[Rfam]
RNA sequence: AUAUAUUAAAUCGAUAAAGUUCGCUUUAACUGCCGAAAGGCUGAUGACUCCUACCAGAGA
Numbered sequence: 001a002u003a004u005a006u007u008a009a010a011u012c013g014a015u016a017a018a019g020u021u022c023g024c025u026u027u028a029a030c031u032g033c034c035g036a037a038a039g040g041c042u043g044a045u046g047a048c049u050c051c052u053a054c055c056a057g058a059g060a
Base pairs, nucleotide, nucleotide: 010025012023013022018049019048020047021046032041033040034039
RNA: Fluoride riboswitch aptamer (crcB RNA motif)